[Rfam]
RNA sequence: CUUCCGCUCUCCCCGCACAGGAGGGCGGACCGAGGACCCGGUGCUCUCUGCCCUGACUGCUCCGGUUCCUCACCUUUCGGCCGAUCGGGACCGCACACCCCGUGGCCGGGAUUGCUCCGGGCUGCGGUGCCGCGAGGGUUGAGGGUCCCUCCAGGCGC
Numbered sequence: 001c002u003u004c005c006g007c008u009c010u011c012c013c014c015g016c017a018c019a020g021g022a023g024g025g026c027g028g029a030c031c032g033a034g035g036a037c038c039c040g041g042u043g044c045u046c047u048c049u050g051c052c053c054u055g056a057c058u059g060c061u062c063c064g065g066u067u068c069c070u071c072a073c074c075u076u077u078c079g080g081c082c083g084a085u086c087g088g089g090a091c092c093g094c095a096c097a098c099c100c101c102g103u104g105g106c107c108g109g110g111a112u113u114g115c116u117c118c119g120g121g122c123u124g125c126g127g128u129g130c131c132g133c134g135a136g137g138g139u140u141g142a143g144g145g146u147c148c149c150u151c152c153a154g155g156c157g158c
Stems, first nucleotide, its partner, number of pairs: 003029004008024005032071005038065004043060002045056002077109007087100003113129004118124002132152001134151005
A member of the RNA family "Streptomyces sRNA scr5239" from Streptomyces acidiscabies, 158 nucleotides long.
Lineage of the source: Bacteria > Bacillati > Actinomycetota > Streptomycetaceae > Streptomyces.
It is annotated as a small RNA.
The family's consensus secondary structure is taken from published work.